[Rfam]
RNA sequence: CCAAAACUAGCUGCUUAUUAUUUUCUAAUUAGUUCUUAGAAAAUUCUAACACACUAAGAACCAAUUAGAAAAUAACAAGUGGCUAGUUUUGA
Number, nucleotide and partner (000 for none) at each position: 001c000002c091003a090004a089005a088006a087007c086008u085009a084010g083011c082012u081013g080014c079015u078016u077017a000018u075019u074020a073021u072022u071023u070024u069025c068026u067027a066028a065029u064030u063031a000032g061033u060034u059035c058036u057037u056038a055039g054040a000041a000042a000043a000044u000045u000046c000047u000048a000049a000050c000051a000052c000053a000054c039055u038056a037057a036058g035059a034060a033061c032062c000063a030064a029065u028066u027067a026068g025069a024070a023071a022072a021073u020074a019075a018076c000077a016078a015079g014080u013081g012082g011083c010084u009085a008086g007087u006088u005089u004090u003091g002092a000

Shown here is a 92-nucleotide RNA from Prunus yedoensis, a member of the family "MIR6288 microRNA precursor family". A search with the family's covariance model found it, with a score of 84 bits. The family has 3 seed sequences and 293 matches in Rfam 15.1. The family's consensus secondary structure was predicted with RNAalifold. Its family is annotated with RISC complex and miRNA-mediated post-transcriptional gene silencing in the Gene Ontology.